[Rfam]
The record is a 204-nucleotide RNA sequence from Methylomonas sp. DH-1, which matches "Group II catalytic intron D1-D4-6" in Rfam. The pairing is the family consensus, mapped onto this sequence. Rfam describes the family as follows. Group II introns are found in rRNA, tRNA and mRNA of organelles in fungi, plants and protists, and also in mRNA in bacteria. The family has 174 seed sequences and 1,617 matches in Rfam 15.1.
RNA sequence: CUAGCCCACCGUCUCGGCCCCGAGUGAUGCACGGUUACUCGUGAGGGUAAACGUGAAGCGUUCACAGGGGAGGCCACAGGCUGGGUAUUGAGCUGCGAAAUGGGUCGAACUUCGAGGUGCCGAUCUCGUUCUCUUGAAGAGAAGGCAAUAUUGGCUCAUGCGUUUUGGCCAGCAUGAUUCCGGACCUCGCGCAGUCGUAGACCC
Numbered sequence: 001c002u003a004g005c006c007c008a009c010c011g012u013c014u015c016g017g018c019c020c021c022g023a024g025u026g027a028u029g030c031a032c033g034g035u036u037a038c039u040c041g042u043g044a045g046g047g048u049a050a051a052c053g054u055g056a057a058g059c060g061u062u063c064a065c066a067g068g069g070g071a072g073g074c075c076a077c078a079g080g081c082u083g084g085g086u087a088u089u090g091a092g093c094u095g096c097g098a099a100a101u102g103g104g105u106c107g108a109a110c111u112u113c114g115a116g117g118u119g120c121c122g123a124u125c126u127c128g129u130u131c132u133c134u135u136g137a138a139g140a141g142a143a144g145g146c147a148a149u150a151u152u153g154g155c156u157c158a159u160g161c162g163u164u165u166u167g168g169c170c171a172g173c174a175u176g177a178u179u180c181c182g183g184a185c186c187u188c189g190c191g192c193a194g195u196c197g198u199a200g201a202c203c204c
Stems, first nucleotide, its partner, number of pairs: 002171001004169002018070004024065004028060002030055004035050006090196001092195006113189006119146003124140003151183004156177006